SAM riboswitch aptamer (S box leader): a 103-nucleotide sequence from Leuconostoc lactis. It scores 46 bits against the family's covariance model. The organism belongs to Leuconostoc, within Bacteria.
[Rfam]
RNA sequence: CAGCUAUCAAGAGCAGGCGAGUGAUACAGCACUUUGACCCUGCACCAACCGGCAAAAUAUGGCAGCAUAUUUCGUCAUGGUGGUCCAUCUGUACAGAUAGUCG
Number, nucleotide and partner (000 for none) at each position: 001c103002a000003g101004c100005u099006a098007u097008c096009a000010a000011g000012a000013g043014c042015a041016g040017g039018c000019g000020a000021g032022u031023g030024a000025u000026a000027c091028a090029g089030c023031a022032c021033u000034u000035u000036g000037a000038c000039c017040c016041u015042g014043c013044a084045c083046c082047a081048a000049c080050c079051g076052g075053c074054a000055a000056a000057a000058u000059a000060u000061g000062g000063c000064a000065g000066c000067a000068u000069a000070u000071u000072u000073c000074g053075u052076c051077a000078u000079g050080g049081u047082g046083g045084u044085c000086c000087a000088u095089c029090u028091g027092u000093a000094c000095a088096g008097a007098u006099a005100g004101u003102c000103g001